[Rfam]
RNA sequence: UUUGGGAAAGUGAUGAAUAAUUCAUUUCAGAUAUCCUUUUAUGGAUAAGUAUCUGAUGAAAAAUUGCACGUCAGUCUGAUCCCAUA
Numbered sequence: 001u002u003u004g005g006g007a008a009a010g011u012g013a014u015g016a017a018u019a020a021u022u023c024a025u026u027u028c029a030g031a032u033a034u035c036c037u038u039u040u041a042u043g044g045a046u047a048a049g050u051a052u053c054u055g056a057u058g059a060a061a062a063a064u065u066g067c068a069c070g071u072c073a074g075u076c077u078g079a080u081c082c083c084a085u086a
Stems, first nucleotide, its partner, number of pairs: 001086001003084005